About this RNA
The record is a 276-nucleotide part of an RNA from Devosia sp. Root413D1, which matches "Bacterial large subunit ribosomal RNA" in Rfam. Its family is annotated with structural constituent of ribosome and ribosome in the Gene Ontology. A search with the family's covariance model found it, with a score of 2709 bits.

RNA sequence: GAUAAAGAGGGUGAGAGACCCUCUCGCCGUAAGUCCAAGGGUUCCUGCGCAAUGCUAAUCAGCGCAGGGUUAGCCGGCCCCUAAGUCGAGGCAGACAUGCGUAGACGAUGGGAACCACGUUAAUAUUCGUGGGCCUGGUGGUAGUGACGGAUCGCGCGGGUUCGUAUCCCCUUAUUGGAUUGGGGGUGCGAUGAGCCGGUUCCAGGAAAUAGCUCCACCAACAUAGACCGUACCCUAAACCGACACAGGUGGACAGGUAGAGCAUACCAAGGCGCU
Numbered sequence: 001g002a003u004a005a006a007g008a009g010g011g012u013g014a015g016a017g018a019c020c021c022u023c024u025c026g027c028c029g030u031a032a033g034u035c036c037a038a039g040g041g042u043u044c045c046u047g048c049g050c051a052a053u054g055c056u057a058a059u060c061a062g063c064g065c066a067g068g069g070u071u072a073g074c075c076g077g078c079c080c081c082u083a084a085g086u087c088g089a090g091g092c093a094g095a096c097a098u099g100c101g102u103a104g105a106c107g108a109u110g111g112g113a114a115c116c117a118c119g120u121u122a123a124u125a126u127u128c129g130u131g132g133g134c135c136u137g138g139u140g141g142u143a144g145u146g147a148c149g150g151a152u153c154g155c156g157c158g159g160g161u162u163c164g165u166a167u168c169c170c171c172u173u174a175u176u177g178g179a180u181u182g183g184g185g186g187u188g189c190g191a192u193g194a195g196c197c198g199g200u201u202c203c204a205g206g207a208a209a210u211a212g213c214u215c216c217a218c219c220a221a222c223a224u225a226g227a228c229c230g231u232a233c234c235c236u237a238a239a240c241c242g243a244c245a246c247a248g249g250u251g252g253a254c255a256g257g258u259a260g261a262g263c264a265u266a267c268c269a270a271g272g273c274g275c276u
Base pairs, nucleotide, nucleotide: 006024007023008022009021010020011019025274026273027272028271033254034253035252036251039234040233044068045067046066047065048064049063053061054060075230076229077228080111081110085106086105087104089102091100092099093098115132116131117130118129119128135226136223137222140219141218142217143214144213145212149202150201151200152199155195157193160189240249241248256268257267258266259265